[Rfam]
Shown here is a 295-nucleotide RNA sequence from Ophiophagus hannah, a member of the family "Metazoan signal recognition particle RNA". Pairs were carried over by alignment from the consensus structure, which is taken from published work. Gene Ontology terms of the family: signal recognition particle, endoplasmic reticulum targeting and SRP-dependent cotranslational protein targeting to membrane, signal sequence recognition. Taxonomically the source falls in Ophiophagus (Eukaryota, Opisthokonta, Craniata, Toxicofera). Rfam classes the family as a non-coding RNA gene. About the family: The signal recognition particle (SRP) is a universally conserved ribonucleoprotein. Clan: SRP clan. On this family, see Batey et al., J Mol Biol 2001: "Structural and energetic analysis of RNA recognition by a universally conserved protein from the signal recognition particle". It scores 177 bits against the family's covariance model.

RNA sequence: GCCAGGCGCUGUGGUGCGAGCCUGUAAUCCAGCUACUCCAGAGGCUGAGGCUGGCAGAUCGCUUGAGCUCAGGAGUUCUGGGCUGCAGUGGGCUAUGCCGAUCGGGUGUCUGCACUAAGUUCGGCAUCAAUAUGUUGAUCCCUGGGGAGCCGAGGGCCACCAGGUUGCCUAAGGAGAGGUGAACCGGCCCAGGUCAGAGAUGGAGCAGGACAAAACUCCUGUGCCGAUCAGUAGUGGGAUAGCACCUGUGAUCUAGCUCUUAGCUAGAUCACCUAUGCUAGAGACAUCCAGCUGU
Numbered sequence: 001g002c003c004a005g006g007c008g009c010u011g012u013g014g015u016g017c018g019a020g021c022c023u024g025u026a027a028u029c030c031a032g033c034u035a036c037u038c039c040a041g042a043g044g045c046u047g048a049g050g051c052u053g054g055c056a057g058a059u060c061g062c063u064u065g066a067g068c069u070c071a072g073g074a075g076u077u078c079u080g081g082g083c084u085g086c087a088g089u090g091g092g093c094u095a096u097g098c099c100g101a102u103c104g105g106g107u108g109u110c111u112g113c114a115c116u117a118a119g120u121u122c123g124g125c126a127u128c129a130a131u132a133u134g135u136u137g138a139u140c141c142c143u144g145g146g147g148a149g150c151c152g153a154g155g156g157c158c159a160c161c162a163g164g165u166u167g168c169c170u171a172a173g174g175a176g177a178g179g180u181g182a183a184c185c186g187g188c189c190c191a192g193g194u195c196a197g198a199g200a201u202g203g204a205g206c207a208g209g210a211c212a213a214a215a216c217u218c219c220u221g222u223g224c225c226g227a228u229c230a231g232u233a234g235u236g237g238g239a240u241a242g243c244a245c246c247u248g249u250g251a252u253c254u255a256g257c258u259c260u261u262a263g264c265u266a267g268a269u270c271a272c273c274u275a276u277g278c279u280a281g282a283g284a285c286a287u288c289c290a291g292c293u294g295u
Base pairs, nucleotide, nucleotide: 001045002044003043004023005022006021007020009018028042029041047295049293050292051291052290053289054288058287059286062283063282066279067278068277071274072273073272079271080270081269083267084266085265088261090259092257093256094255095254098250103248104247105246106245107244108243109242110238111237113236114235115234116233117232119229121227122226123225124224125223126222127221128167129166130165131164133162134161136159137158139156140155141154143152144151145150168174169173175220176219178217179216180215186211188209189208194203195202196201